[Rfam]
RNA sequence: CCGACUUCAGCUACAGUGUUAGCUAAGUUAG
Numbered sequence: 001c002c003g004a005c006u007u008c009a010g011c012u013a014c015a016g017u018g019u020u021a022g023c024u025a026a027g028u029u030a031g
Stems, first nucleotide, its partner, number of pairs: 001031001003029005009024005014018001

A member of the RNA family "Iron response element II" from Canis lupus, 31 nucleotides long. Rfam describes the family as follows. IRE, TFRC, SLC40A1, SDHB, SLC11A2, CDC42BPA, ACO2, ALAS2_H.SAPIENS, CDC14A, EPAS1, ALAS2, qoxD, Hao1, NDUFS1, transferrin, Aconitate.